The family of this 67-nucleotide RNA sequence from Breoghania corrubedonensis is "DUF3800-VIII RNA". Taxonomically the source falls in Breoghania (Bacteria, Alphaproteobacteria, Hyphomicrobiales, Stappiaceae).
RNA sequence: AAGGCCCUGCCUUGUUCGAAGGCUCUAGUUCCACUAGGGAGUUUCAUGUAGAACUUGGCGGGGUCAU
Numbered sequence: 001a002a003g004g005c006c007c008u009g010c011c012u013u014g015u016u017c018g019a020a021g022g023c024u025c026u027a028g029u030u031c032c033a034c035u036a037g038g039g040a041g042u043u044u045c046a047u048g049u050a051g052a053a054c055u056u057g058g059c060g061g062g063g064u065c066a067u
Stems, first nucleotide, its partner, number of pairs: 001067001003065009015053003023039007